[Rfam]
RNA sequence: AGAACGCACAUUAAUUAUCCCUAGGACCAUGUGAUAAACAAAAAUCCUACAAAACCAAGUUAGCACACCCUAGAAUGGUUUUAGCACGAUUACUAUAUGGCUUUGAUACUAAUUGAUGGGAAAAACCC
Numbered sequence: 001a002g003a004a005c006g007c008a009c010a011u012u013a014a015u016u017a018u019c020c021c022u023a024g025g026a027c028c029a030u031g032u033g034a035u036a037a038a039c040a041a042a043a044a045u046c047c048u049a050c051a052a053a054a055c056c057a058a059g060u061u062a063g064c065a066c067a068c069c070c071u072a073g074a075a076u077g078g079u080u081u082u083a084g085c086a087c088g089a090u091u092a093c094u095a096u097a098u099g100g101c102u103u104u105g106a107u108a109c110u111a112a113u114u115g116a117u118g119g120g121a122a123a124a125a126c127c128c
Stems, first nucleotide, its partner, number of pairs: 009118008022105004027100007048086001053080002056077002060073004
RNA: MIR845_2 microRNA precursor family
Organism: Vitis vinifera